[Rfam]
Bacterial RNase P class A: a 383-nucleotide sequence from Desulfotignum phosphitoxidans.
RNA sequence: CUGACCGGACCAGAUGAUCGCCGGGUCGACCCAGUCGACCGGGAGGAAAGUCCGAACACCACAGGACAGGACGCUCCAUAACGUGGAGUCACGGUGACGUGAAGGAAAGUGCAACAGAGAGCAGACCGCCGGCAGCCCCUGGCUGUCGGUAAGGGUGAAACGGUGCGGUAAGAGCGCACCAGUUUUCCGGGUGACCGGAAAAGCUUGGUAAACCCCGUCCGGUGCAAGACCAAAUAGGGAAACGCUUGAGGGCGGUCCGUCCGAAGUUUCCGGGUAGGUUGCUUGAGGGGUACGGCAACGUACACCUUAGAUGAAUGAUCGUUGACCGGGUUUCGGGCAACCGGAUCCGGUAACAGAAUUCGGCUUACGGGCCGGUCAGGCCG
Number, nucleotide and partner (000 for none) at each position: 001c379002u378003g377004a376005c375006c374007g373008g372009a000010c371011c370012a000013g323014a322015u321016g320017a319018u318019c317020g000021c043022c042023g000024g040025g039026u038027c037028g036029a035030c000031c000032c000033a000034g000035u029036c028037g027038a026039c025040c024041g000042g022043g021044a000045g000046g000047a000048a366049a365050g364051u000052c363053c362054g361055a360056a359057c224058a223059c222060c221061a000062c000063a000064g258065g257066a256067c255068a000069g220070g219071a218072c217073g216074c088075u087076c086077c085078a084079u000080a000081a000082c000083g000084u078085g077086g076087a075088g074089u103090c101091a100092c099093g098094g000095u000096g000097a000098c093099g092100u091101g090102a000103a089104g215105g214106a000107a000108a000109g213110u212111g209112c208113a000114a000115c000116a000117g000118a000119g000120a000121g000122c000123a000124g000125a000126c154127c153128g150129c149130c148131g147132g146133c145134a144135g143136c142137c000138c000139c000140u000141g000142g136143c135144u134145g133146u132147c131148g130149g129150u128151a000152a000153g127154g126155g000156u000157g000158a000159a000160a000161c000162g180163g179164u178165g177166c176167g175168g000169u000170a000171a000172g000173a000174g000175c167176g166177c165178a164179c163180c162181a000182g204183u202184u201185u200186u199187c198188c197189g196190g195191g000192u000193g000194a000195c190196c189197g188198g187199a186200a185201a184202a183203g000204c182205u000206u000207g000208g112209u111210a000211a000212a110213c109214c105215c104216c073217g072218u071219c070220c069221g060222g059223u058224g057225c000226a000227a000228g280229a279230c278231c277232a000233a000234a000235u000236a000237g000238g271239g270240a269241a268242a267243c266244g000245c000246u000247u000248g000249a000250g262251g261252g260253c259254g000255g067256u066257c065258c064259g253260u252261c251262c250263g000264a000265a000266g243267u242268u241269u240270c239271c238272g000273g000274g000275u000276a000277g231278g230279u229280u228281g000282c000283u000284u000285g000286a000287g306288g305289g000290g303291u302292a301293c300294g299295g000296c000297a000298a000299c294300g293301u292302a291303c290304a000305c288306c287307u000308u000309a000310g000311a000312u000313g000314a000315a000316u000317g019318a018319u017320c016321g015322u014323u013324g000325a000326c000327c000328g000329g000330g000331u000332u000333u000334c000335g000336g000337g000338c000339a000340a000341c000342c000343g000344g000345a000346u000347c000348c000349g000350g000351u000352a000353a000354c000355a000356g000357a000358a000359u056360u055361c054362g053363g052364c050365u049366u048367a000368c000369g000370g011371g010372c008373c007374g006375g005376u004377c003378a002379g001380g000381c000382c000383g000
Source information
The family's consensus secondary structure is taken from published work. The literature on the family includes a 1998 paper in Annu Rev Biochem by Frank and Pace, "Ribonuclease P: unity and diversity in a tRNA processing ribozyme". The source organism's lineage runs through Bacteria, Pseudomonadati, Desulfobacterales, Desulfobacteraceae and Desulfotignum phosphitoxidans. Rfam describes the family as follows. Ribonuclease P (RNase P) is a ubiquitous endoribonuclease, found in archaea, bacteria and eukarya as well as chloroplasts and mitochondria.